U12 minor spliceosomal RNA: a 154-nucleotide RNA sequence from Crocuta crocuta. Taxonomically the source falls in Crocuta (Eukaryota, Mammalia, Theria, Boreoeutheria). Rfam classes the family as a spliceosomal small nuclear RNA. Its Rfam clan is "U2 clan".
[Rfam]
RNA sequence: AUGCCUUAAACUUAUGAGUAAGAAAAAUAACAAUUCGGGAUAAUACCUGAAUCCUCACUGCUAAUGUGAGAGGAGACAAGUUUUUGAGCAGGUAAAAGUCAAACCUAAGGUGACCCACCUACUUGAGGGAUGCCUGGAAGUUGUGAUCUGCCCG
Numbered sequence: 001a002u003g004c005c006u007u008a009a010a011c012u013u014a015u016g017a018g019u020a021a022g023a024a025a026a027a028u029a030a031c032a033a034u035u036c037g038g039g040a041u042a043a044u045a046c047c048u049g050a051a052u053c054c055u056c057a058c059u060g061c062u063a064a065u066g067u068g069a070g071a072g073g074a075g076a077c078a079a080g081u082u083u084u085u086g087a088g089c090a091g092g093u094a095a096a097a098g099u100c101a102a103a104c105c106u107a108a109g110g111u112g113a114c115c116c117a118c119c120u121a122c123u124u125g126a127g128g129g130a131u132g133c134c135u136g137g138a139a140g141u142u143g144u145g146a147u148c149u150g151c152c153c154g
Stems, first nucleotide, its partner, number of pairs: 005022004033052007054070005089154001091152003096149001098147004106137001108135005114129003118125001
Dot-bracket structure: ....((((..........))))..........(((((((......))))))).(((((.......)))))..................(.(((..(.((((....(.(((((.(((.(......).))).))))).)......)))).)))).)